RNA sequence: GCUGAGCUCUGUAACGAGAGCUUGUAACCCGAGUGGGGGCAUGUGGGUGAUGCGGACGGCAGUGUCUGGUCAGACGGGUUGAGCCAGCGGGCUGUGUUGUCGGCCCGCCCAUUCCGAGUGUAGAGUUGGGCCAAGGUGUCCAUGCGGAAGCUUGGGCUUCUUGGCCCGUAGAGUGGAGAGCACCGCGUGAGGCUGGUUUGACAGAGCAGCGAGAAUCUCCCGCUCUUUGCGGUGGAAGGAUAACGGGCCGUUGCUUAGCGGGUUUAAAGAGCCCAUUGAUCAGCUCCAACCGGACCAUCACCUUU
Numbered sequence: 001g002c003u004g005a006g007c008u009c010u011g012u013a014a015c016g017a018g019a020g021c022u023u024g025u026a027a028c029c030c031g032a033g034u035g036g037g038g039g040c041a042u043g044u045g046g047g048u049g050a051u052g053c054g055g056a057c058g059g060c061a062g063u064g065u066c067u068g069g070u071c072a073g074a075c076g077g078g079u080u081g082a083g084c085c086a087g088c089g090g091g092c093u094g095u096g097u098u099g100u101c102g103g104c105c106c107g108c109c110c111a112u113u114c115c116g117a118g119u120g121u122a123g124a125g126u127u128g129g130g131c132c133a134a135g136g137u138g139u140c141c142a143u144g145c146g147g148a149a150g151c152u153u154g155g156g157c158u159u160c161u162u163g164g165c166c167c168g169u170a171g172a173g174u175g176g177a178g179a180g181c182a183c184c185g186c187g188u189g190a191g192g193c194u195g196g197u198u199u200g201a202c203a204g205a206g207c208a209g210c211g212a213g214a215a216u217c218u219c220c221c222g223c224u225c226u227u228u229g230c231g232g233u234g235g236a237a238g239g240a241u242a243a244c245g246g247g248c249c250g251u252u253g254c255u256u257a258g259c260g261g262g263u264u265u266a267a268a269g270a271g272c273c274c275a276u277u278g279a280u281c282a283g284c285u286c287c288a289a290c291c292g293g294a295c296c297a298u299c300a301c302c303u304u305u
Stems, first nucleotide, its partner, number of pairs: 001040003004023007028037003043305001045303008054295001057292002062287001064285001066283004073277002076274005081265005087259002089256003093253002101250007109239002112237005118230003122226005128167009138157005144151002175220005184213001186211003193204003